[Rfam]
RNA sequence: CACCCCCUGUCGUGUUCGAGUGUGGCCUGGGUAUUUUCUUGAGCCUAAUGACUACCCUGGGGUCGCAGAAGCGAGGCGGUUGUGCAUGUCCGUCACCGAGCGGGAAGCCUGAAGCCUUGUCGAGUGUCCCCACUUGAACCUCCUGGUUCAAGAACAAAAGGCCUUAAACGGCACAUAUGGGGGGUGU
Number, nucleotide and partner (000 for none) at each position: 001c000002a185003c184004c183005c182006c181007c180008u179009g178010u177011c000012g174013u173014g172015u171016u000017c170018g169019a000020g000021u000022g000023u000024g000025g000026c000027c000028u000029g000030g000031g000032u000033a000034u000035u000036u154037u153038c152039u000040u150041g149042a148043g147044c146045c145046u000047a000048a000049u000050g000051a000052c000053u000054a000055c000056c000057c000058u000059g131060g130061g129062g000063u000064c126065g125066c124067a000068g000069a000070a000071g120072c119073g118074a117075g116076g115077c114078g000079g000080u000081u000082g000083u000084g108085c107086a000087u000088g000089u104090c103091c102092g101093u100094c000095a000096c000097c000098g000099a000100g093101c092102g091103g090104g089105a000106a000107g085108c084109c000110u000111g000112a000113a000114g077115c076116c075117u074118u073119g072120u071121c000122g000123a000124g066125u065126g064127u000128c000129c061130c060131c059132a000133c000134u000135u000136g000137a000138a000139c000140c000141u000142c000143c000144u000145g045146g044147u043148u042149c041150a040151a000152g038153a037154a036155c000156a000157a000158a000159a000160g000161g000162c000163c000164u000165u000166a000167a000168a000169c018170g017171g015172c014173a013174c012175a000176u000177a010178u009179g008180g007181g006182g005183g004184g003185u002186g000187u000
6S / SsrS RNA: a 187-nucleotide RNA from Thiocapsa imhoffii. It scores 80 bits against the family's covariance model. The family's consensus secondary structure is taken from published work. Rfam 15.1 lists 5,006 matches to the family in 4,638 species. The source organism's lineage runs through Bacteria, Pseudomonadati, Gammaproteobacteria, Chromatiales and Thiocapsa. On this family, see Wassarman and Storz, Cell 2000: "6S RNA regulates E. coli RNA polymerase activity".